About this RNA:
Shown here is a 109-nucleotide RNA from Actinacidiphila bryophytorum, a member of the family "TPP riboswitch aptamer (THI element)". Vitamin B(1) in its active form thiamin pyrophosphate (TPP) is an essential coenzyme that is synthesised by coupling of pyrimidine and thiazole moieties in bacteria. The organism belongs to Actinacidiphila, within Bacteria.
RNA sequence: AGCGAACUCGCGGGAGCCCGGCGGACCGGGCUGAGAGGGCGGCUGGGGGCCGCCGACCGUAGAACCUGAUCCGGGUCAUGCCGGCGAAGGGAGGAGCGGUAGUUCCAUG
Numbered sequence: 001a002g003c004g005a006a007c008u009c010g011c012g013g014g015a016g017c018c019c020g021g022c023g024g025a026c027c028g029g030g031c032u033g034a035g036a037g038g039g040c041g042g043c044u045g046g047g048g049g050c051c052g053c054c055g056a057c058c059g060u061a062g063a064a065c066c067u068g069a070u071c072c073g074g075g076u077c078a079u080g081c082c083g084g085c086g087a088a089g090g091g092a093g094g095a096g097c098g099g100u101a102g103u104u105c106c107a108u109g
Stems, first nucleotide, its partner, number of pairs: 007096003011059003016031005038054007065090003071084004